[Rfam]
RNA sequence: UAGCCCAUCGGGGUCGUGGAUACCUGCUAUGAUUUUU
Number, nucleotide and partner (000 for none) at each position: 001u000002a000003g014004c013005c012006c011007a000008u000009c000010g000011g006012g005013g004014u003015c000016g000017u026018g025019g024020a000021u000022a000023c000024c019025u018026g017027c000028u000029a000030u000031g000032a000033u000034u000035u000036u000037u000
A member of the RNA family "XIST RNA A repeat" from Trichechus manatus, 37 nucleotides long. The literature on the family includes a 2011 paper in RNA by Duszczyk et al., "The Xist RNA A-repeat comprises a novel AUCG tetraloop fold and a platform for multimerization".